[Rfam]
RNA sequence: AUGUAGUGUAGCAUGCCCGUUUGGGUUGAACUCUGAUGUUGAAUUAAUUAUUAUUUAAUUACUUUUGGGUAACGGGGUGUUACACUAUG
Numbered sequence: 001a002u003g004u005a006g007u008g009u010a011g012c013a014u015g016c017c018c019g020u021u022u023g024g025g026u027u028g029a030a031c032u033c034u035g036a037u038g039u040u041g042a043a044u045u046a047a048u049u050a051u052u053a054u055u056u057a058a059u060u061a062c063u064u065u066u067g068g069g070u071a072a073c074g075g076g077g078u079g080u081u082a083c084a085c086u087a088u089g
Stems, first nucleotide, its partner, number of pairs: 002089013016076006